[Rfam]
The family of this 122-nucleotide RNA from Fukomys damarensis is "Small nucleolar RNA SNORA26".
Its family is annotated with nucleolus and RNA processing in the Gene Ontology.
NCBI's taxonomy places the organism under Eukaryota, Teleostomi, Amniota, Hystricomorpha, Fukomys.
Clan: SNORA27 clan.
Pairs were carried over by alignment from the consensus structure, which was predicted with RNAalifold.

RNA sequence: GUGCCCUUUUAAGGAUGACAUCGUGUCUUAAAAGGAUAUCACAGAAGAGUAAAGGAAGCCUCCAUAAAACCCAGAGAAGAGACUGUGAAACUCCUCUUUGGAUCCUGUCUGGAGUCACAGCU
Numbered sequence: 001g002u003g004c005c006c007u008u009u010u011a012a013g014g015a016u017g018a019c020a021u022c023g024u025g026u027c028u029u030a031a032a033a034g035g036a037u038a039u040c041a042c043a044g045a046a047g048a049g050u051a052a053a054g055g056a057a058g059c060c061u062c063c064a065u066a067a068a069a070c071c072c073a074g075a076g077a078a079g080a081g082a083c084u085g086u087g088a089a090a091c092u093c094c095u096c097u098u099u100g101g102a103u104c105c106u107g108u109c110u111g112g113a114g115u116c117a118c119a120g121c122u
Stems, first nucleotide, its partner, number of pairs: 002051003006047005014040004019035001021032001058116001060114005071101007079093003084089001